JUMPstart RNA: a 38-nucleotide sequence from Aeromonas salmonicida.
Rfam's curators put it in the seed alignment.
Rfam 15.1 lists 288 matches to the family in 230 species.
Lineage of the source: Bacteria > Pseudomonadati > Aeromonadaceae > Aeromonas salmonicida > Aeromonas salmonicida subsp. salmonicida.
RNA sequence: CAGCGAACUGGGGGCUGUAACUCAGGGGCGGUAGCCAA
Numbered sequence: 001c002a003g004c005g006a007a008c009u010g011g012g013g014g015c016u017g018u019a020a021c022u023c024a025g026g027g028g029c030g031g032u033a034g035c036c037a038a
Stems, first nucleotide, its partner, number of pairs: 008025005